RNA: ALIL pseudoknot
RNA sequence: AGCGUUUUUCGCAGCGGCGGAGGUCGACCGCCGACUUCGGUGAUCGUCGACUACAUCGACGAGUACCGCCACCGCUUCGGGGUCGACCCGAUCUGCACCGUGCUCCGCGAACACGGCAUCAAGAUCGCCCCG
Numbered sequence: 001a002g003c004g005u006u007u008u009u010c011g012c013a014g015c016g017g018c019g020g021a022g023g024u025c026g027a028c029c030g031c032c033g034a035c036u037u038c039g040g041u042g043a044u045c046g047u048c049g050a051c052u053a054c055a056u057c058g059a060c061g062a063g064u065a066c067c068g069c070c071a072c073c074g075c076u077u078c079g080g081g082g083u084c085g086a087c088c089c090g091a092u093c094u095g096c097a098c099c100g101u102g103c104u105c106c107g108c109g110a111a112c113a114c115g116g117c118a119u120c121a122a123g124a125u126c127g128c129c130c131c132g
Stems, first nucleotide, its partner, number of pairs: 016032005078132005089127002092124003
Dot-bracket structure: ...............(((((.......))))).............................................(((((......((.(((...........................))).)))))))